[Rfam]
RNA sequence: UGCAGAAAGUCACAAGGAAACCAGUGCUCUUUUCAUGUUUACAUGAAAAGGCAUAGGACCUUGGGACCCGAACAAACAUGAGAAUGCAGCCCGACAGGGCGGAAUUCGAAUGUUUGUAAGAUUACGGAAGCACAAAGUGCGGAGUAAUCUGUGUAUCA
Number, nucleotide and partner (000 for none) at each position: 001u155002g154003c153004a152005g000006a000007a000008a000009g067010u066011c065012a000013c000014a000015a062016g061017g060018a000019a000020a000021c057022c056023a000024g054025u053026g052027c051028u000029c050030u049031u048032u000033u046034c045035a044036u043037g042038u000039u000040u000041a000042c037043a036044u035045g034046a033047a000048a031049a030050g029051g027052c026053a025054u024055a000056g022057g021058a000059c000060c017061u016062u015063g000064g000065g011066a010067c009068c000069c000070g000071a000072a117073c116074a115075a114076a113077c112078a111079u110080g000081a000082g107083a106084a105085u104086g000087c000088a000089g100090c099091c098092c097093g000094a000095c000096a000097g092098g091099g090100c089101g000102g000103a000104a085105u084106u083107c082108g000109a000110a079111u078112g077113u076114u075115u074116g073117u072118a000119a150120g149121a148122u147123u146124a145125c144126g000127g000128a000129a000130g140131c139132a138133c137134a000135a000136a000137g133138u132139g131140c130141g000142g000143a000144g125145u124146a123147a122148u121149c120150u119151g000152u004153g003154u002155a001156u000157c000158a000
Source information
Shown here is a 158-nucleotide RNA from Blautia liquoris, a member of the family "Clostridiales-1 RNA". NCBI's taxonomy places the organism under Bacteria, Bacillati, Bacillota, Lachnospiraceae, Blautia. Pairs were carried over by alignment from the consensus structure, which is taken from published work. The family has 194 seed sequences and 1,172 matches in Rfam 15.1.